The family of this 92-nucleotide RNA sequence from Parvimonas micra is "THF (Tetrahydrofolate) riboswitch aptamer".
The base pairs follow the family's consensus structure, which is taken from published work.
About the family: Tetrahydrofolate (THF) riboswitch was first reported for Ames et al. as an RNA motif in 5' untranslated (5'-UTR)regions of folate transport and biosynthesis genes in Firmicutes genomes.
The organism belongs to Parvimonas micra, within Bacteria.
RNA sequence: GGCAGAGUAGGAAACUUGCAUUAAGUGUUACAAGAUGGGAUGUUGCUUGUAAACGAAGAGAUUUCUCGUGGUUAGUUUUCGCAUCCACUGUU
Numbered sequence: 001g002g003c004a005g006a007g008u009a010g011g012a013a014a015c016u017u018g019c020a021u022u023a024a025g026u027g028u029u030a031c032a033a034g035a036u037g038g039g040a041u042g043u044u045g046c047u048u049g050u051a052a053a054c055g056a057a058g059a060g061a062u063u064u065c066u067c068g069u070g071g072u073u074a075g076u077u078u079u080c081g082c083a084u085c086c087a088c089u090g091u092u
Base pairs, nucleotide, nucleotide: 001092002091003090004089005088010080011079012078013077014076015075016074018072019070020069021068025054026053028052029051030050031049032048033047038086039085040084041083042082058067059066060065